[Rfam]
RNA: tRNA
Organism: Stenotrophomonas tumulicola
RNA sequence: GGGCGGUUAGCUCAGCGGUAGAGCAUUGCCUUCACACGGCAAGGGUCACAAGUUCGAACCUUGUACCGCCCA
Numbered sequence: 001g002g003g004c005g006g007u008u009a010g011c012u013c014a015g016c017g018g019u020a021g022a023g024c025a026u027u028g029c030c031u032u033c034a035c036a037c038g039g040c041a042a043g044g045g046u047c048a049c050a051a052g053u054u055c056g057a058a059c060c061u062u063g064u065a066c067c068g069c070c071c072a
Base pairs, nucleotide, nucleotide: 001071002070003069004068005067006066007065010024011023012022013021026042027041028040029039030038048064049063050062051061052060